[Rfam]
RNA sequence: GAGAAUGUGAAGAGAAAAGCACUGAGGUCGAAACAAGGCAAGACUUCAAGUGCUUUUCUUG
Numbered sequence: 001g002a003g004a005a006u007g008u009g010a011a012g013a014g015a016a017a018a019g020c021a022c023u024g025a026g027g028u029c030g031a032a033a034c035a036a037g038g039c040a041a042g043a044c045u046u047c048a049a050g051u052g053c054u055u056u057u058c059u060u061g
Stems, first nucleotide, its partner, number of pairs: 015057008023048003027044003
Shown here is a 61-nucleotide RNA from Crocosphaera watsonii, a member of the family "Cyano-1 RNA". The organism belongs to Crocosphaera watsonii, within Bacteria. Rfam classes the family as a small RNA.